[Rfam]
The record is a 102-nucleotide RNA sequence from Paenibacillus sedimenti, which matches "Purine riboswitch aptamer" in Rfam. Its family is annotated with purine nucleobase biosynthetic process in the Gene Ontology. On this family, see Mandal et al., Cell 2003: "Riboswitches Control Fundamental Biochemical Pathways in Bacillus subtilis and Other Bacteria". NCBI's taxonomy places the organism under Bacteria, Bacillota, Bacilli, Caryophanales, Paenibacillus. Pairs were carried over by alignment from the consensus structure, which is taken from published work. The match comes from Rfam's covariance-model search (75 bits).

Nucleotides: 102
Base pairs, nucleotide, nucleotide: 020086021085022084023083024082025081031047032046033045034044035043058078059077060076061075062074063073064072
Number, partner (000 for none) and nucleotide at each position: 001000a002000u003000u004000g005000a006000a007000a008000a009000u010000g011000u012000c013000g014000a015000a016000c017000c018000a019000a020086c021085u022084c023083g024082u025081a026000u027000a028000a029000c030000g031047u032046c033045a034044g035043g036000a037000a038000u039000a040000a041000g042000g043035c044034c045033u046032g047031a048000a049000a050000g051000u052000a053000u054000c055000u056000a057000c058078c059077c060076a061075a062074a063073a064072a065000c066000c067000a068000u069000a070000a071000a072064u073063u074062u075061u076060u077059g078058g079000a080000c081025u082024a083023c084022g085021a086020g087000g088000a089000a090000g091000c092000g093000a094000a095000u096000g097000c098000g099000g100000g101000a102000a